[Rfam]
RNA: mir-172 microRNA precursor family
RNA sequence: GUAUCUGCAGGUGCAGCAUCAUCAAGAUUCACACUGCCUAAUUAGGGCUUCAUGAAUCAUGAGUGCACAUGCUUGUACAUAUAUUAUGUAUGUUGUAUUUAUUGGCUCUCUGGCGUUUCUGGGAGUUUAGUGAGAAUCUUGAUGAUGCUGCAACAGCAAAUAU
Numbered sequence: 001g002u003a004u005c006u007g008c009a010g011g012u013g014c015a016g017c018a019u020c021a022u023c024a025a026g027a028u029u030c031a032c033a034c035u036g037c038c039u040a041a042u043u044a045g046g047g048c049u050u051c052a053u054g055a056a057u058c059a060u061g062a063g064u065g066c067a068c069a070u071g072c073u074u075g076u077a078c079a080u081a082u083a084u085u086a087u088g089u090a091u092g093u094u095g096u097a098u099u100u101a102u103u104g105g106c107u108c109u110c111u112g113g114c115g116u117u118u119c120u121g122g123g124a125g126u127u128u129a130g131u132g133a134g135a136a137u138c139u140u141g142a143u144g145a146u147g148c149u150g151c152a153a154c155a156g157c158a159a160a161u162a163u
Stems, first nucleotide, its partner, number of pairs: 010154001012152019032132005